This 57-nucleotide RNA sequence from Gossypium anomalum belongs to the Rfam family "Plastid-ndhJ 3UTR RNA". From the family's description: Plastid ndhJ is a non-coding RNA (ncRNA) present in plastids. It was identified as a short stem-loop motif in the 3 prime untranslate region (3UTR) of ndhJ gene. A reference for the family is Richter et al. (2023), "Retrograde signaling in plants: A critical review focusing on the GUN pathway and beyond", Plant Commun. The family has 50 seed sequences and 869 matches in Rfam 15.1. It is annotated as a cis-regulatory element.
RNA sequence: CCGAGAACUUUGUAUCGCGCACAUCAGUCAGAUGAACUCUAGAGAGUCGCAUAAAAG
Numbered sequence: 001c002c003g004a005g006a007a008c009u010u011u012g013u014a015u016c017g018c019g020c021a022c023a024u025c026a027g028u029c030a031g032a033u034g035a036a037c038u039c040u041a042g043a044g045a046g047u048c049g050c051a052u053a054a055a056a057g
Stems, first nucleotide, its partner, number of pairs: 019037001022034004